[Rfam]
RNA sequence: GUGUUUAUGCAAACACGCUUGGUUUGUGGUUCCAAGCUAGUCGCAAGUGGGGCCGAGAUCGCAGAUUAAAUCUCGGUUGAGUGGUUCCAUUUGCUGACGAACGUCCCACACUUU
Numbered sequence: 001g002u003g004u005u006u007a008u009g010c011a012a013a014c015a016c017g018c019u020u021g022g023u024u025u026g027u028g029g030u031u032c033c034a035a036g037c038u039a040g041u042c043g044c045a046a047g048u049g050g051g052g053c054c055g056a057g058a059u060c061g062c063a064g065a066u067u068a069a070a071u072c073u074c075g076g077u078u079g080a081g082u083g084g085u086u087c088c089a090u091u092u093g094c095u096g097a098c099g100a101a102c103g104u105c106c107c108a109c110a111c112u113u114u
Base pairs, nucleotide, nucleotide: 001010002009003008017037018036019035020034021033022032026109027108028107029106040098041097042096043094044093045092052085053084054083055082057078058077063073064072065071
RNA: RAGATH-11 RNA
Organism: Brachionus plicatilis